[Rfam]
The family of this 35-nucleotide RNA is "S16-Flavobacteria ribosomal protein leader".
The base pairs follow the family's consensus structure, which is taken from published work.
Rfam's curators put it in the seed alignment.
It is annotated as a cis-regulatory leader.
RNA sequence: AUUAAUAACCGAGGUCGAGAACCUCAAAAUUUAAU
Numbered sequence: 001a002u003u004a005a006u007a008a009c010c011g012a013g014g015u016c017g018a019g020a021a022c023c024u025c026a027a028a029a030u031u032u033a034a035u
Stems, first nucleotide, its partner, number of pairs: 001035005011025005